[Rfam]
RNA sequence: AAGACUAUACUUUCAGGGAUCAUUUCUGUAGUUGGUCACUAGAGGAGAGUGAUCUUCCCUGAUCGGCGUCACAAGCCACGAGGAGGAGCGAGGUGUUCUCUCCUGAGCGCGAAGCGGGCGGGCGGUGCUGCCUGCGCAGGGGCCGCCCGCCAUUGAUGACCGUUCCCGGCCCUCGCAGUGGGGCUCGGGAGGGAGAGAGCACGGGCUGAGUGGU
Numbered sequence: 001a002a003g004a005c006u007a008u009a010c011u012u013u014c015a016g017g018g019a020u021c022a023u024u025u026c027u028g029u030a031g032u033u034g035g036u037c038a039c040u041a042g043a044g045g046a047g048a049g050u051g052a053u054c055u056u057c058c059c060u061g062a063u064c065g066g067c068g069u070c071a072c073a074a075g076c077c078a079c080g081a082g083g084a085g086g087a088g089c090g091a092g093g094u095g096u097u098c099u100c101u102c103c104u105g106a107g108c109g110c111g112a113a114g115c116g117g118g119c120g121g122g123c124g125g126u127g128c129u130g131c132c133u134g135c136g137c138a139g140g141g142g143c144c145g146c147c148c149g150c151c152a153u154u155g156a157u158g159a160c161c162g163u164u165c166c167c168g169g170c171c172c173u174c175g176c177a178g179u180g181g182g183g184c185u186c187g188g189g190a191g192g193g194a195g196a197g198a199g200c201a202c203g204g205g206c207u208g209a210g211u212g213g214u
Base pairs, nucleotide, nucleotide: 002040003039006035009032010031011030014028015027016026017025018024051063053062054061075214076213077212078211079210093202094201095200096199097198098197099196100195101194102193103192104191107163108162109161117151118150119149120148123145124144125143126142128139129138130137131136166188167187168185169184170183171182172181173180

Shown here is a 214-nucleotide RNA sequence, a member of the family "Small nucleolar RNA U3".
By type it is a C/D-box small nucleolar RNA.
Rfam describes the family as follows. Small nucleolar RNAs (snoRNAs) are involved in the processing and modification of rRNA in the nucleolus. There are two main classes of snoRNAs: the box C/D class, and the box H/ACA class.
Pairs were carried over by alignment from the consensus structure, which is taken from published work.
It is one of the family's seed sequences.
Rfam links the family to the GO terms RNA processing and nucleolus.